[Rfam]
RNA sequence: GCGUAACAAUCGCCCGAUUUUUUAACGAGAAGGACACACACUUUGGACAGUCAUAGUCGAUACCGAAUAUCGCUCUAGACGCUCGCCUUUUAUUAUCGGCGCGCGUUCG
Numbered sequence: 001g002c003g004u005a006a007c008a009a010u011c012g013c014c015c016g017a018u019u020u021u022u023u024a025a026c027g028a029g030a031a032g033g034a035c036a037c038a039c040a041c042u043u044u045g046g047a048c049a050g051u052c053a054u055a056g057u058c059g060a061u062a063c064c065g066a067a068u069a070u071c072g073c074u075c076u077a078g079a080c081g082c083u084c085g086c087c088u089u090u091u092a093u094u095a096u097c098g099g100c101g102c103g104c105g106u107u108c109g
Base pairs, nucleotide, nucleotide: 001013002012003011005010031076032075033074035072042067043066044065045064046063050061051060052059078107079106080105081104082103084101085100086099087098
A member of the RNA family "Aggregatibacter sRNA 54" from Haemophilus influenzae, 109 nucleotides long. It is annotated as a small RNA. The base pairs follow the family's consensus structure, which was predicted with RNAfold. A reference for the family is Oogai et al. (2017), "Small RNA repertoires and their intraspecies variation in Aggregatibacter actinomycetemcomitans", DNA Res. Rfam's curators write: Validated by RT-PCR, expression up-regulated during growth.